[Rfam]
RNA sequence: UACAUAUGUUGGCAAACUUCUUGAAAAAGAAGGGCGCAAAGCUAGAAUCUAAGGUAUAUACUAUGAUAGUUCGGCUGCUUAA
Numbered sequence: 001u002a003c004a005u006a007u008g009u010u011g012g013c014a015a016a017c018u019u020c021u022u023g024a025a026a027a028a029g030a031a032g033g034g035c036g037c038a039a040a041g042c043u044a045g046a047a048u049c050u051a052a053g054g055u056a057u058a059u060a061c062u063a064u065g066a067u068a069g070u071u072c073g074g075c076u077g078c079u080u081a082a
Stems, first nucleotide, its partner, number of pairs: 012037002017032006040076004045072002047067003054061002